[Rfam]
RNA sequence: GGCACGCUUGCUGCAAAACAGCUCUCAGCGGUGGCCAACGGCGGUCACCGAACCUCGACAAAGGCGUCGC
Number, nucleotide and partner (000 for none) at each position: 001g000002g000003c000004a000005c000006g000007c000008u000009u000010g000011c000012u000013g000014c000015a000016a000017a000018a000019c000020a000021g000022c000023u000024c000025u000026c000027a000028g000029c000030g049031g048032u047033g046034g045035c044036c043037a000038a000039c000040g000041g000042c000043g036044g035045u034046c033047a032048c031049c030050g000051a000052a000053c000054c000055u000056c000057g000058a000059c000060a000061a000062a000063g000064g000065c000066g000067u000068c000069g000070c000
RNA: narK RNA